This 385-nucleotide sequence from Leucobacter viscericola belongs to the Rfam family "Bacterial RNase P class A". The source organism's lineage runs through Bacteria, Bacillati, Actinomycetota, Micrococcales and Leucobacter. Its family is annotated with ribonuclease P activity, tRNA processing and dimeric ribonuclease P complex in the Gene Ontology. By type it is a ribozyme. The family is grouped with related families in Rfam's "RNaseP clan".
RNA sequence: UGGGUCGGUGAGGCGGUCGCGUCACGGCAUCGCGCAAGCGGUGGAUGUGCCGAGGAACGUCCGGGCUCCGCAGGGGAGAACGGUGGGUAACACCCACCCGGGGCAACCCGCGAGAAAGUGCAACAGAGAGUAGACCGCCAGAUUCGGCUUGCCGAUUCUGGUAAGGCUGAAAGGGUGGUGUAAGAGACCACCGGCGUUCGUGGCAACACGGGCGGCCAGGUAAACCUCGUUCGGAGCAAGGCCAGACAGAAGAUGAUGACGCUCCCCGCCGAGUCUUCGGGUAGGCCGCUAGAGGGUACUGGUAACAGUGCCACGAGAGAGAUGACCGUCACCGCUGGCUUUUACGCCAGCGCGACAGAACCCGGCGUAUGAUCCGGCCCAUUCC
Number, nucleotide and partner (000 for none) at each position: 001u381002g380003g379004g378005u377006c376007g375008g374009u000010g000011a370012g330013g329014c328015g327016g326017u325018c324019g000020c052021g051022u000023c049024a048025c047026g046027g000028c044029a000030u000031c000032g000033c000034g000035c000036a000037a000038g000039c000040g000041g000042u000043g000044g028045a000046u026047g025048u024049g023050c000051c021052g020053a000054g000055g000056a000057a368058c367059g366060u000061c365062c364063g363064g362065g361066c236067u235068c234069c233070g000071c000072a000073g266074g265075g264076g263077a000078g232079a231080a230081c229082g228083g097084u096085g095086g094087g093088u000089a000090a000091c000092a000093c087094c086095c085096a084097c083098c112099c110100g109101g108102g107103g000104c000105a000106a000107c102108c101109c100110g099111c000112g098113a227114g226115a000116a000117a000118g225119u224120g221121c220122a000123a000124c000125a000126g000127a000128g000129a000130g000131u000132a000133g000134a000135c166136c165137g162138c161139c160140a159141g158142a157143u000144u155145c154146g153147g152148c000149u000150u000151g000152c147153c146154g145155a144156u000157u142158c141159u140160g139161g138162u137163a000164a000165g136166g135167c000168u000169g000170a000171a000172a000173g000174g192175g191176u190177g189178g188179u187180g000181u000182a000183a000184g000185a000186g000187a179188c178189c177190a176191c175192c174193g000194g216195c214196g213197u212198u211199c210200g209201u208202g207203g000204c000205a000206a000207c202208a201209c200210g199211g198212g197213c196214g195215g000216c194217c000218a000219g000220g121221u120222a000223a000224a119225c118226c114227u113228c082229g081230u080231u079232c078233g069234g068235a067236g066237c000238a000239a000240g287241g286242c285243c284244a000245g000246a000247c000248a000249g278250a277251a276252g275253a274254u273255g000256a000257u271258g270259a000260c268261g267262c000263u076264c075265c074266c073267c261268g260269c000270c258271g257272a000273g254274u253275c252276u251277u250278c249279g000280g000281g000282u000283a000284g243285g242286c241287c240288g000289c000290u000291a000292g000293a000294g000295g312296g311297u310298a309299c308300u307301g306302g000303u000304a000305a000306c301307a300308g299309u298310g297311c296312c295313a000314c000315g000316a000317g000318a000319g000320a000321g000322a000323u000324g018325a017326c016327c015328g014329u013330c012331a000332c000333c000334g000335c000336u000337g000338g000339c000340u000341u000342u000343u000344a000345c000346g000347c000348c000349a000350g000351c000352g000353c000354g000355a000356c000357a000358g000359a000360a000361c065362c064363c063364g062365g061366c059367g058368u057369a000370u011371g000372a000373u000374c008375c007376g006377g005378c004379c003380c002381a001382u000383u000384c000385c000